[Rfam]
RNA sequence: GGACGGUGAAGAUUGAUAUUUGGUCUUGUUAGCCAUAACUGGCAUUUGUUUGCCUUGCCGACUACCCAAAUUCUCAGUCC
Numbered sequence: 001g002g003a004c005g006g007u008g009a010a011g012a013u014u015g016a017u018a019u020u021u022g023g024u025c026u027u028g029u030u031a032g033c034c035a036u037a038a039c040u041g042g043c044a045u046u047u048g049u050u051u052g053c054c055u056u057g058c059c060g061a062c063u064a065c066c067c068a069a070a071u072u073c074u075c076a077g078u079c080c
Stems, first nucleotide, its partner, number of pairs: 001080004044056001
The family of this 80-nucleotide sequence from Aegilops tauschii is "Small nucleolar RNA Z43". Its family is annotated with RNA processing and nucleolus in the Gene Ontology. The family's consensus secondary structure was predicted with PFOLD. The family has 7 seed sequences and 859 matches in Rfam 15.1. The source organism's lineage runs through Eukaryota, Streptophytina, commelinids, Triticinae and Aegilops tauschii. By type it is a C/D-box small nucleolar RNA.